[Rfam]
RNA sequence: GCAGACAAUACUCUGUUCUUUACUGUCACUCCAGUCUGGAACUUUUUGUGUCUGCUAGAUAAAUGUCAGAAUAUAUCCACUACUGGCUUUUUCUGAAAAGCUGGAUCGGCUAUGUUCUGCCACAUGU
Numbered sequence: 001g002c003a004g005a006c007a008a009u010a011c012u013c014u015g016u017u018c019u020u021u022a023c024u025g026u027c028a029c030u031c032c033a034g035u036c037u038g039g040a041a042c043u044u045u046u047u048g049u050g051u052c053u054g055c056u057a058g059a060u061a062a063a064u065g066u067c068a069g070a071a072u073a074u075a076u077c078c079a080c081u082a083c084u085g086g087c088u089u090u091u092u093c094u095g096a097a098a099a100g101c102u103g104g105a106u107c108g109g110c111u112a113u114g115u116u117c118u119g120c121c122a123c124a125u126g127u
Stems, first nucleotide, its partner, number of pairs: 001055006015042005023034003068118007077109002081105001084103005
Rfam assigns this 127-nucleotide RNA from Gadus morhua to the family "Small nucleolar RNA SNORA77". The organism belongs to Gadus, within Eukaryota. From the family's description: ACA63 (SNORA77) is a member of the H/ACA class of snoRNAs that guide the sites of modification of uridines to pseudouridines. On this family, see Schattner et al., RNA 2006: "A computational screen for mammalian pseudouridylation guide H/ACA RNAs". It is annotated as an H/ACA-box small nucleolar RNA.